[Rfam]
This 114-nucleotide RNA sequence from Silurus meridionalis belongs to the Rfam family "Potassium channel RNA editing signal". Taxonomically the source falls in Silurus (Eukaryota, Opisthokonta, Bilateria, Deuterostomia). The match comes from Rfam's covariance-model search (86 bits). The family has 85 seed sequences and 14,095 matches in Rfam 15.1. The family's consensus secondary structure is taken from published work. Gene Ontology term of the family: adenosine to inosine editing.

RNA sequence: GUGGGCUACGGAGAUAUCUAUCCCCAAACCCUUUUAGGUAAAAUUGUUGGUGGGCUUUGUUGUAUCGCUGGUGUUCUGGUGAUCGCCUUGCCAAUUCCCAUCAUUGUAAACAAC
Numbered sequence: 001g002u003g004g005g006c007u008a009c010g011g012a013g014a015u016a017u018c019u020a021u022c023c024c025c026a027a028a029c030c031c032u033u034u035u036a037g038g039u040a041a042a043a044u045u046g047u048u049g050g051u052g053g054g055c056u057u058u059g060u061u062g063u064a065u066c067g068c069u070g071g072u073g074u075u076c077u078g079g080u081g082a083u084c085g086c087c088u089u090g091c092c093a094a095u096u097c098c099c100a101u102c103a104u105u106g107u108a109a110a111c112a113a114c
Stems, first nucleotide, its partner, number of pairs: 001114002004111001007108005013102003020095002037077002040074001049063001